[Rfam]
RNA: c-di-GMP-I riboswitch aptamer
Organism: Streptohalobacillus salinus
RNA sequence: AUAUAAGAAGGGCAAAUCUAUUGAAAAGUAGAGACGCAAAACUAUAGGGGCUAAAGGCUUAACCAAAGUCAAUGCCAGCCAGUUGCAUUU
Numbered sequence: 001a002u003a004u005a006a007g008a009a010g011g012g013c014a015a016a017u018c019u020a021u022u023g024a025a026a027a028g029u030a031g032a033g034a035c036g037c038a039a040a041a042c043u044a045u046a047g048g049g050g051c052u053a054a055a056g057g058c059u060u061a062a063c064c065a066a067a068g069u070c071a072a073u074g075c076c077a078g079c080c081a082g083u084u085g086c087a088u089u090u
Base pairs, nucleotide, nucleotide: 012037013036017032018031019030020029021028022027040084041083042082043081047080048079049076050075051074056070057069058068059067